[Rfam]
RNA sequence: GGCGCUGUAGUGUAGAGGUUAUCACUCGAGAUUCUGAUAUUAAUGAAAACGUAAGAUCGUUCUCGAAACCCAGGUUCGAGUCCUGGCAGUGCCU
Numbered sequence: 001g002g003c004g005c006u007g008u009a010g011u012g013u014a015g016a017g018g019u020u021a022u023c024a025c026u027c028g029a030g031a032u033u034c035u036g037a038u039a040u041u042a043a044u045g046a047a048a049a050c051g052u053a054a055g056a057u058c059g060u061u062c063u064c065g066a067a068a069c070c071c072a073g074g075u076u077c078g079a080g081u082c083c084u085g086g087c088a089g090u091g092c093c094u
Base pairs, nucleotide, nucleotide: 001093002092003091004090005089006088007087010025011024012023027065028064029063030062031061070086071085072084073083074082